[Rfam]
RNA sequence: UCCACCUUGAGGUGGAAUCUGAAGAAGCUGAAGACAAAAUCCUGGUCUGAGGUACACGAAUCACAUUAGAGACUGUAUAAACUGGGUGAGUUUGCAUAACAAAACAAAGCCCUAAAUGGUUCGAAAGUUUAUGCAGUAAAUAUGGCGGAUAUAUGGGAGGAAGCAGGUUACGCU
Numbered sequence: 001u002c003c004a005c006c007u008u009g010a011g012g013u014g015g016a017a018u019c020u021g022a023a024g025a026a027g028c029u030g031a032a033g034a035c036a037a038a039a040u041c042c043u044g045g046u047c048u049g050a051g052g053u054a055c056a057c058g059a060a061u062c063a064c065a066u067u068a069g070a071g072a073c074u075g076u077a078u079a080a081a082c083u084g085g086g087u088g089a090g091u092u093u094g095c096a097u098a099a100c101a102a103a104a105c106a107a108a109g110c111c112c113u114a115a116a117u118g119g120u121u122c123g124a125a126a127g128u129u130u131a132u133g134c135a136g137u138a139a140a141u142a143u144g145g146c147g148g149a150u151a152u153a154u155g156g157g158a159g160g161a162a163g164c165a166g167g168u169u170a171c172g173c174u
Stems, first nucleotide, its partner, number of pairs: 001016006027174001029172002035166001040158005045150005061145003065141002072137003076133007084112004090105004
Shown here is a 174-nucleotide RNA sequence from Thermohalobacter berrensis, a member of the family "Group II catalytic intron D1-D4-3". A reference for the family is Bonen and Vogel (2001), "The ins and outs of group II introns", Trends Genet. Taxonomically the source falls in Thermohalobacter (Bacteria, Bacillota, Tissierellia, Tissierellales).